[Rfam]
RNA sequence: CGCAAGCGGUGAUGAAGAUGGCUUCAUGUCACUGUCCUGAAAAAACCAUGUGGGUCAUUUAGUCACUAUCUCUUCUGAGCUUGGU
Numbered sequence: 001c002g003c004a005a006g007c008g009g010u011g012a013u014g015a016a017g018a019u020g021g022c023u024u025c026a027u028g029u030c031a032c033u034g035u036c037c038u039g040a041a042a043a044a045a046c047c048a049u050g051u052g053g054g055u056c057a058u059u060u061a062g063u064c065a066c067u068a069u070c071u072c073u074u075c076u077g078a079g080c081u082u083g084g085u
Base pairs, nucleotide, nucleotide: 003083004082005081006080007079
Dot-bracket structure: ..(((((.......................................................................)))))..
Shown here is an 85-nucleotide RNA sequence from Sinocyclocheilus grahami, a member of the family "Small nucleolar RNA SNORD11B". Taxonomically the source falls in Sinocyclocheilus (Eukaryota, Craniata, Neopterygii, Cypriniphysae). Rfam 15.1 lists 733 matches to the family in 632 species. It scores 50 bits against the family's covariance model. Pairs were carried over by alignment from the consensus structure, which was predicted with WAR. For this family Rfam cites "snoSeeker: an advanced computational package for screening of guide and orphan snoRNA genes in the human genome" (Yang et al., Nucleic Acids Res, 2006).